The family of this 53-nucleotide RNA from Gossypium raimondii is "Plastid-psbl-rps4 3UTR RNA". From the family's description: Plastid psbl-rps4-psbC is a non-coding RNA (ncRNA) present in plastids. It is compose of two short stem-loops in tandem in the terminal 3 prime untranslate region (3UTR) mostly in psbl and rps4 seed plants genes. Lineage of the source: Eukaryota > Embryophyta > Spermatophyta > Mesangiospermae > Gossypium.
RNA sequence: CGAAAAGAGAGGGAUUCGAACCCUCAGUACGAAUAACUUGCACAAUGGAUUAG
Numbered sequence: 001c002g003a004a005a006a007g008a009g010a011g012g013g014a015u016u017c018g019a020a021c022c023c024u025c026a027g028u029a030c031g032a033a034u035a036a037c038u039u040g041c042a043c044a045a046u047g048g049a050u051u052a053g
Stems, first nucleotide, its partner, number of pairs: 009025005027043002030040003